Shown here is an 82-nucleotide sequence, a member of the family "tRNA". The family's RNA type in Rfam is transfer RNA.

[Rfam]
RNA sequence: GCAGCGAUGGCCGAGUGGUUAAGGCGUUGGACUUGAAAUCCAAUGGGGUCUCCCCGCGCAGGUUCGAACCCUGCUCGCUGCG
Numbered sequence: 001g002c003a004g005c006g007a008u009g010g011c012c013g014a015g016u017g018g019u020u021a022a023g024g025c026g027u028u029g030g031a032c033u034u035g036a037a038a039u040c041c042a043a044u045g046g047g048g049u050c051u052c053c054c055c056g057c058g059c060a061g062g063u064u065c066g067a068a069c070c071c072u073g074c075u076c077g078c079u080g081c082g
Stems, first nucleotide, its partner, number of pairs: 001081007010025003027043005058074005